[Rfam]
RNA: Plant signal recognition particle RNA
RNA sequence: GCCGAGCCUGGUAACGUGGGCUUGUAACCUUAGUGGGGGCAUUGAAAUGGUGGAAUGUUUUGGCUGACUCAGAAGGUAGGACUUUGUGGGCUAUAUUCUGGACUGCCCUGUCCAAGCAUAGAGUUGGGCUAUGUAGCCCAAGUGAAGACAUGGGUCGCUUAGCUUCUAAAGAGGGGCGGAUCGCGUGAGGCUGGUUUCACAGAGCAACGAACAGCUCCCGGCACUAUUCAGUGGAAGGUUAACGGGCCCGUGUUUGCAAAGUCCAACAAAAGCCUGAUGUGCUGCUCCAAUUAAACCACCAUUUUU
Numbered sequence: 001g002c003c004g005a006g007c008c009u010g011g012u013a014a015c016g017u018g019g020g021c022u023u024g025u026a027a028c029c030u031u032a033g034u035g036g037g038g039g040c041a042u043u044g045a046a047a048u049g050g051u052g053g054a055a056u057g058u059u060u061u062g063g064c065u066g067a068c069u070c071a072g073a074a075g076g077u078a079g080g081a082c083u084u085u086g087u088g089g090g091c092u093a094u095a096u097u098c099u100g101g102a103c104u105g106c107c108c109u110g111u112c113c114a115a116g117c118a119u120a121g122a123g124u125u126g127g128g129c130u131a132u133g134u135a136g137c138c139c140a141a142g143u144g145a146a147g148a149c150a151u152g153g154g155u156c157g158c159u160u161a162g163c164u165u166c167u168a169a170a171g172a173g174g175g176g177c178g179g180a181u182c183g184c185g186u187g188a189g190g191c192u193g194g195u196u197u198c199a200c201a202g203a204g205c206a207a208c209g210a211a212c213a214g215c216u217c218c219c220g221g222c223a224c225u226a227u228u229c230a231g232u233g234g235a236a237g238g239u240u241a242a243c244g245g246g247c248c249c250g251u252g253u254u255u256g257c258a259a260a261g262u263c264c265a266a267c268a269a270a271a272g273c274c275u276g277a278u279g280u281g282c283u284g285c286u287c288c289a290a291u292u293a294a295a296c297c298a299c300c301a302u303u304u305u306u
Stems, first nucleotide, its partner, number of pairs: 001040003004023007028037003044305010056293002059290002062286003066282001070279002074275004079264008088255003092252002098250001100248002103245003107238002111235004116229001118227004123222002126165006133158002136155005142149002166171001173218005184209003191202003